[Rfam]
RNA sequence: GUCAUACUACGGUGCUUCAAGGUGCAAAGUAAACGAUGACCCACCAUGAACUCUGCGGUAAAAUACGUAUCAAAAUGCAAAACCUUCAGACCCUGAGACAUACCUUCGGGUCGGGGUUAUUU
Numbered sequence: 001g002u003c004a005u006a007c008u009a010c011g012g013u014g015c016u017u018c019a020a021g022g023u024g025c026a027a028a029g030u031a032a033a034c035g036a037u038g039a040c041c042c043a044c045c046a047u048g049a050a051c052u053c054u055g056c057g058g059u060a061a062a063a064u065a066c067g068u069a070u071c072a073a074a075a076u077g078c079a080a081a082a083c084c085u086u087c088a089g090a091c092c093c094u095g096a097g098a099c100a101u102a103c104c105u106u107c108g109g110g111u112c113g114g115g116g117u118u119a120u121u122u
Base pairs, nucleotide, nucleotide: 001040002039003038004037005036010035011034014030015029041048057071058070059069060068086115087114089112090111091110092109093108095106096105

The record is a 122-nucleotide sequence from Erwinia mallotivora, which matches "Enterobacteria greA leader" in Rfam. It scores 98 bits against the family's covariance model. The family's RNA type in Rfam is cis-regulatory leader. Rfam links the family to the GO term regulation of gene expression. Pairs were carried over by alignment from the consensus structure, which is taken from published work.